RNA: Small nucleolar RNA SNORD79
RNA sequence: AACUGUCAAUGAUGGACAAUGUUAAAAACAUUGGGAAUCUCUCUGAAAAGAGUGAAAGACAACUUUUUACUGAUGCAGUG
Numbered sequence: 001a002a003c004u005g006u007c008a009a010u011g012a013u014g015g016a017c018a019a020u021g022u023u024a025a026a027a028a029c030a031u032u033g034g035g036a037a038u039c040u041c042u043c044u045g046a047a048a049a050g051a052g053u054g055a056a057a058g059a060c061a062a063c064u065u066u067u068u069a070c071u072g073a074u075g076c077a078g079u080g
Stems, first nucleotide, its partner, number of pairs: 002079005